[Rfam]
RNA sequence: UUGCUGUGAUGAUACUUGCUUUUGCUCACUGCUGACUUGCUGCGAAGACCUUUUUCUCUUGGCCGUCUGAGUAG
Numbered sequence: 001u002u003g004c005u006g007u008g009a010u011g012a013u014a015c016u017u018g019c020u021u022u023u024g025c026u027c028a029c030u031g032c033u034g035a036c037u038u039g040c041u042g043c044g045a046a047g048a049c050c051u052u053u054u055u056c057u058c059u060u061g062g063c064c065g066u067c068u069g070a071g072u073a074g
Stems, first nucleotide, its partner, number of pairs: 001074004
About this RNA
A member of the RNA family "Small nucleolar RNA SNORD53/SNORD92" from Pelusios castaneus, 74 nucleotides long. For this family Rfam cites "Site-specific ribose methylation of preribosomal RNA: a novel function for small nucleolar RNAs" (Kiss-Laszlo et al., Cell, 1996). NCBI's taxonomy places the organism under Eukaryota, Opisthokonta, Metazoa, Vertebrata, Pelusios. The family has 37 seed sequences and 2,250 matches in Rfam 15.1. By type it is a C/D-box small nucleolar RNA. The base pairs follow the family's consensus structure. Rfam links the family to the GO terms RNA processing and nucleolus.